[Rfam]
RNA sequence: UAUCUUGCAGUAAUUUAGUAAUACCUUUCGAACACAUGAUUUUCAGUCAUUCAUGAGUUCGUCAGGUAUUAUCUAGUUAUUGUAAACAU
Numbered sequence: 001u002a003u004c005u006u007g008c009a010g011u012a013a014u015u016u017a018g019u020a021a022u023a024c025c026u027u028u029c030g031a032a033c034a035c036a037u038g039a040u041u042u043u044c045a046g047u048c049a050u051u052c053a054u055g056a057g058u059u060c061g062u063c064a065g066g067u068a069u070u071a072u073c074u075a076g077u078u079a080u081u082g083u084a085a086a087c088a089u
Stems, first nucleotide, its partner, number of pairs: 005085011018072005024066003029061001033057001035055005
RNA: mir-983 microRNA precursor family
Organism: Drosophila simulans